[Rfam]
A member of the RNA family "small nucleolar RNA snoR26" from Plasmodium falciparum, 149 nucleotides long.
It is annotated as a C/D-box small nucleolar RNA.
For this family Rfam cites "Structural RNAs of known and unknown function identified in malaria parasites by comparative genomics and RNA analysis" (Chakrabarti et al., RNA, 2007).
Lineage of the source: Eukaryota > Haemosporida > Plasmodiidae > Laverania > Plasmodium falciparum.

RNA sequence: AUGUUAACAAUAAUUCAUGAUGUAAAAAUGUUAUCCAGUGAUGUUUUUAUUAGAGGCUAAAAAAAAAUGUUUAUGCAAUGAUAAAACGAGUUAAGCAUUUUUUUUUAAGUUGCCGACUCACCUGACAUUGGAACAACCAAAAUUAUUGU
Numbered sequence: 001a002u003g004u005u006a007a008c009a010a011u012a013a014u015u016c017a018u019g020a021u022g023u024a025a026a027a028a029u030g031u032u033a034u035c036c037a038g039u040g041a042u043g044u045u046u047u048u049a050u051u052a053g054a055g056g057c058u059a060a061a062a063a064a065a066a067a068u069g070u071u072u073a074u075g076c077a078a079u080g081a082u083a084a085a086a087c088g089a090g091u092u093a094a095g096c097a098u099u100u101u102u103u104u105u106u107a108a109g110u111u112g113c114c115g116a117c118u119c120a121c122c123u124g125a126c127a128u129u130g131g132a133a134c135a136a137c138c139a140a141a142a143u144u145a146u147u148g149u
Stems, first nucleotide, its partner, number of pairs: 008148008